Record summary:
A member of the RNA family "mir-3492 microRNA precursor family" from Schistosoma curassoni, 78 nucleotides long. The base pairs follow the family's consensus structure, which was predicted with RNAalifold.

RNA sequence: AGAUUUCUGAAUCCGUACCGAGAUUUCAUCAGAUACCAGACUAUUAAGACUGAUGAGACUCCCAAGAUAAGUAAAACG
Numbered sequence: 001a002g003a004u005u006u007c008u009g010a011a012u013c014c015g016u017a018c019c020g021a022g023a024u025u026u027c028a029u030c031a032g033a034u035a036c037c038a039g040a041c042u043a044u045u046a047a048g049a050c051u052g053a054u055g056a057g058a059c060u061c062c063c064a065a066g067a068u069a070a071g072u073a074a075a076a077c078g
Stems, first nucleotide, its partner, number of pairs: 002077001004075003008071001011068003016064001020061003024058007